[Rfam]
RNA sequence: CACCCAGCGGGGCAGGCGCCAGGCGCCGGUCGGAAUGGAACAGGGCCGACCACGUGCCCGCCGGGGAAGCGCAGGGGCCGAAUGUCGGGGGACGUUCGGCCCCUUUUUU
Numbered sequence: 001c002a003c004c005c006a007g008c009g010g011g012g013c014a015g016g017c018g019c020c021a022g023g024c025g026c027c028g029g030u031c032g033g034a035a036u037g038g039a040a041c042a043g044g045g046c047c048g049a050c051c052a053c054g055u056g057c058c059c060g061c062c063g064g065g066g067a068a069g070c071g072c073a074g075g076g077g078c079c080g081a082a083u084g085u086c087g088g089g090g091g092a093c094g095u096u097c098g099g100c101c102c103c104u105u106u107u108u109u
Stems, first nucleotide, its partner, number of pairs: 003065003007061005012055002016026003028051006036043001073104014

The family of this 109-nucleotide sequence from Novilysobacter spongiicola is "Xanthomonadaceae sRNA asX1".
Pairs were carried over by alignment from the consensus structure, which was predicted with CMfinder.
By type it is a small RNA.
The organism belongs to Novilysobacter spongiicola, within Bacteria.